[Rfam]
RNA: RNase MRP
RNA sequence: UCGUUUCUACUCUGCCUGCUAUGGGGCAACAAGCGGAGUUCUUCGUAACUCAGAUGCCCUAGGUAAAGUCCCCAGACCAAUUGGCAGAGAGUGCCACUAGUAAAUGAGUUUACCCUCCCGCAAGCCGGCGAUCAUGGUGGUGCCGUGUGGCGGGAGGGCAUGGUCGCAGCAAAGAGAUGCAGGUUGCCCCGCGCACACUUCAAAGGGCAUACUCAAUGGGGCUCACACAGUGGAGACG
Numbered sequence: 001u002c003g004u005u006u007c008u009a010c011u012c013u014g015c016c017u018g019c020u021a022u023g024g025g026g027c028a029a030c031a032a033g034c035g036g037a038g039u040u041c042u043u044c045g046u047a048a049c050u051c052a053g054a055u056g057c058c059c060u061a062g063g064u065a066a067a068g069u070c071c072c073c074a075g076a077c078c079a080a081u082u083g084g085c086a087g088a089g090a091g092u093g094c095c096a097c098u099a100g101u102a103a104a105u106g107a108g109u110u111u112a113c114c115c116u117c118c119c120g121c122a123a124g125c126c127g128g129c130g131a132u133c134a135u136g137g138u139g140g141u142g143c144c145g146u147g148u149g150g151c152g153g154g155a156g157g158g159c160a161u162g163g164u165c166g167c168a169g170c171a172a173a174g175a176g177a178u179g180c181a182g183g184u185u186g187c188c189c190c191g192c193g194c195a196c197a198c199u200u201c202a203a204a205g206g207g208c209a210u211a212c213u214c215a216a217u218g219g220g221g222c223u224c225a226c227a228c229a230g231u232g233g234a235g236a237c238g
Stems, first nucleotide, its partner, number of pairs: 002238010014184006022062001023060005036051005067223002070221004083095004096109003100105001111160001113158009123148001126145004131141004186208004